[Rfam]
RNA sequence: UUUGGGGUAGAAACUAGCGCGUUAAGUGCCAAUGGAACGGAAUGUGAACAUUGGACGAAAAGUAUUUACUUGCGGUGCUAGUUUCGCAUUCGCCACU
Numbered sequence: 001u002u003u004g005g006g007g008u009a010g011a012a013a014c015u016a017g018c019g020c021g022u023u024a025a026g027u028g029c030c031a032a033u034g035g036a037a038c039g040g041a042a043u044g045u046g047a048a049c050a051u052u053g054g055a056c057g058a059a060a061a062g063u064a065u066u067u068a069c070u071u072g073c074g075g076u077g078c079u080a081g082u083u084u085c086g087c088a089u090u091c092g093c094c095a096c097u
Base pairs, nucleotide, nucleotide: 003095004094005093010085011084012083013082014081015080016079017078018077019076020074021073022072026056027055029054030053031052032051033050034049040091041090042089043088044087060071061070062069063068
The record is a 97-nucleotide RNA sequence from Fructilactobacillus lindneri, which matches "THF (Tetrahydrofolate) riboswitch aptamer" in Rfam. The organism belongs to Fructilactobacillus lindneri, within Bacteria. Rfam's curators write: Tetrahydrofolate (THF) riboswitch was first reported for Ames et al. as an RNA motif in 5' untranslated (5'-UTR)regions of folate transport and biosynthesis genes in Firmicutes genomes. The family's consensus secondary structure is taken from published work.